This 271-nucleotide RNA from Paraconexibacter algicola belongs to the Rfam family "Bacterial large signal recognition particle RNA". From the family's description: The signal recognition particle (SRP) is a universally conserved ribonucleoprotein involved in the co-translational targeting of proteins to membranes. The base pairs follow the family's consensus structure, which is taken from published work. The match comes from Rfam's covariance-model search (160 bits). The family's RNA type in Rfam is non-coding RNA gene. NCBI's taxonomy places the organism under Bacteria, Actinomycetota, Thermoleophilia, Solirubrobacterales, Paraconexibacter. Rfam links the family to the GO terms SRP-dependent cotranslational protein targeting to membrane, signal sequence recognition and signal recognition particle, plasma membrane targeting.

RNA sequence: CCGUGCUAGGCGGGGAGGUAGCGGUGCCCUGUCGCUCGCAAUCCGCUCUAGCGAGGCCGAAUCCCCGGUUGAGGGGUGAGGUCGCGGGGUCGAGCUCGCCGAGUGCGGUGUCGAUGAUCCGGGUCCCGCGCGACGACGGCUCGUGAACCAGGUCAGGUCCGGAAGGAAGCAGCCUUAAGCGAUCACCGGCGGGCGCAGCGGGAGUUCCUGGGUCGGAGCCGUGUCUCGACGGAAGCGCCCGUCGAUCGCCACUUCGAGGUCGGGUGCACGG
Dot-bracket structure: ((((((..(((((((.(.(...).).))))....(((((...........)))))))).....(((((((..(((((..(((((((((........((.(((..(((((.....(((((((((.(((((.(..((.(((.((((.....((((....(((....)))....))))...)))).)..)).)).)....)))))....)))))))))..)))..)).))).))......))))).))))...)))))..))))))).))))))